[Rfam]
RNA sequence: CCCGCGACAGGACGAAAAGACCCCAUGGAGCUUUACUGCAACUUAAUAUUGAAUUUGGAAAACUCAUGUACAGAAUAAGUGGGAGACUUUGAAUUUAAAACGCUAGUUUUAAAGGAGUCGCCUUUGGGAUACCACUCUUGGGUUUUUUAGCUUCUAACCUACACAAGUGUAUUGUGAGGGACAGUGUUUGGUGGGCAGUUUGACUGGGGCGGUCGCCUCCUAAAGAGUAACGGAGGCGUUCAUAAGGUUCCUUCGAAAUGGUCGGAAAUCAUUUUGAGAGCGUAAAGGCAAAAAGGAGCUUGACUGCGAGACAUACAAGUCGAGCAGGGACGAAAGUCGGACUUAGUGAUCUUACGGUACCGCAUGGAAGGGCCGUAACUCAACGGAUAAAAGCUACCCUGGGGAUAACAGGCUUAUCGCUUCCGAGCGUUCACAGCGACGAAGCGGUUUGGCACCUCGAUGUCGGCUCAUCGCAUCCUGGAGCUGGAGAAGGUUCCAAGGGUUGGGCUGUUCGCCCAUUAAAGCGGAACGCGAGCUGGGUUCAGAACGUCGUGAGACAGUUCGGUCUCUAUCCGUCGUGGGCGUU
Numbered sequence: 001c002c003c004g005c006g007a008c009a010g011g012a013c014g015a016a017a018a019g020a021c022c023c024c025a026u027g028g029a030g031c032u033u034u035a036c037u038g039c040a041a042c043u044u045a046a047u048a049u050u051g052a053a054u055u056u057g058g059a060a061a062a063c064u065c066a067u068g069u070a071c072a073g074a075a076u077a078a079g080u081g082g083g084a085g086a087c088u089u090u091g092a093a094u095u096u097a098a099a100a101c102g103c104u105a106g107u108u109u110u111a112a113a114g115g116a117g118u119c120g121c122c123u124u125u126g127g128g129a130u131a132c133c134a135c136u137c138u139u140g141g142g143u144u145u146u147u148u149a150g151c152u153u154c155u156a157a158c159c160u161a162c163a164c165a166a167g168u169g170u171a172u173u174g175u176g177a178g179g180g181a182c183a184g185u186g187u188u189u190g191g192u193g194g195g196c197a198g199u200u201u202g203a204c205u206g207g208g209g210c211g212g213u214c215g216c217c218u219c220c221u222a223a224a225g226a227g228u229a230a231c232g233g234a235g236g237c238g239u240u241c242a243u244a245a246g247g248u249u250c251c252u253u254c255g256a257a258a259u260g261g262u263c264g265g266a267a268a269u270c271a272u273u274u275u276g277a278g279a280g281c282g283u284a285a286a287g288g289c290a291a292a293a294a295g296g297a298g299c300u301u302g303a304c305u306g307c308g309a310g311a312c313a314u315a316c317a318a319g320u321c322g323a324g325c326a327g328g329g330a331c332g333a334a335a336g337u338c339g340g341a342c343u344u345a346g347u348g349a350u351c352u353u354a355c356g357g358u359a360c361c362g363c364a365u366g367g368a369a370g371g372g373c374c375g376u377a378a379c380u381c382a383a384c385g386g387a388u389a390a391a392a393g394c395u396a397c398c399c400u401g402g403g404g405a406u407a408a409c410a411g412g413c414u415u416a417u418c419g420c421u422u423c424c425g426a427g428c429g430u431u432c433a434c435a436g437c438g439a440c441g442a443a444g445c446g447g448u449u450u451g452g453c454a455c456c457u458c459g460a461u462g463u464c465g466g467c468u469c470a471u472c473g474c475a476u477c478c479u480g481g482a483g484c485u486g487g488a489g490a491a492g493g494u495u496c497c498a499a500g501g502g503u504u505g506g507g508c509u510g511u512u513c514g515c516c517c518a519u520u521a522a523a524g525c526g527g528a529a530c531g532c533g534a535g536c537u538g539g540g541u542u543c544a545g546a547a548c549g550u551c552g553u554g555a556g557a558c559a560g561u562u563c564g565g566u567c568u569c570u571a572u573c574c575g576u577c578g579u580g581g582g583c584g585u586u
Base pairs, nucleotide, nucleotide: 001582002581003580004579005578006577007576008575010574011573012572014569015568022403023402024401025400027399028398029395030394031393032392033391035199036198037197038196042191043190045188046187047186048185051154052153053152055150056149057148058147059146060145061144062143063142064141065140066139068137078136079135080134081133082132085119086118087117094113095112096111097110098109099108100107101106158179159178160177162176163175164174165173166172202214203213204212205211215237216236217235218234219233220232238384240341241340247299248298249297250296251295252294253279254278256274257273258272259271260270261269280289281288304327305326306325307324310321311320312319329338330337331336352378353377354376355375356374357373358372360371361370412453413452414451416450417447418446419445420444421443422442423441427437428436464539465537466536467535468534469531471527472526473525474524477502478501480497481496482495483494484493485492504518505517506516507515508514545563546562547561548560549558550557551556
Dot-bracket structure: ((((((((.(((.((......((((.(((((((.((((...((.((((..(((.((((((((((((.(.........(((((..(((......((((((((....))))))))...)))............)))))).)))))))))))).)))...(((.(((((.....)))))))).....)))).))....))))..((((.....))))((((((...........))))))(.((.....((((((((.((((((.......))))))...))((......))....))))))....((((..(((......)))..)))).(((....))).))..........(((((((.((........))))))))).....)......)))))..))))))........(((.((((((((...((.......))...)))))))..))))..........((((((.((((..((.((((((......))))))...)).(((((.....))))).....))))...)..)))).).....(((((((....))).))))....))..)))))))))))....
Rfam assigns this 586-nucleotide part of an RNA from Coconut lethal yellowing phytoplasma to the family "Bacterial large subunit ribosomal RNA".
The family's consensus secondary structure is taken from published work.
Rfam 15.1 lists 51,934 matches to the family in 10,816 species.